[Rfam]
RNA sequence: AACUUUGCGCAGAGGCAAUAUCGUAACCAAUGAGGUUAAUCCGAGGUGCGAUUAUUGCUAGUUGAAAACUUUACCAAUACCCCGCCUUGUGGACGUGAAACACCGUCCGCUAUGGCAAUUUUUGGAAGGCCGUAAAGGC
Numbered sequence: 001a002a003c004u005u006u007g008c009g010c011a012g013a014g015g016c017a018a019u020a021u022c023g024u025a026a027c028c029a030a031u032g033a034g035g036u037u038a039a040u041c042c043g044a045g046g047u048g049c050g051a052u053u054a055u056u057g058c059u060a061g062u063u064g065a066a067a068a069c070u071u072u073a074c075c076a077a078u079a080c081c082c083c084g085c086c087u088u089g090u091g092g093a094c095g096u097g098a099a100a101c102a103c104c105g106u107c108c109g110c111u112a113u114g115g116c117a118a119u120u121u122u123u124g125g126a127a128g129g130c131c132g133u134a135a136a137g138g139c
Stems, first nucleotide, its partner, number of pairs: 020052005026047003034042002084116003087112001089110006095103002129139003
RNA: U4 spliceosomal RNA
Organism: Bombyx mori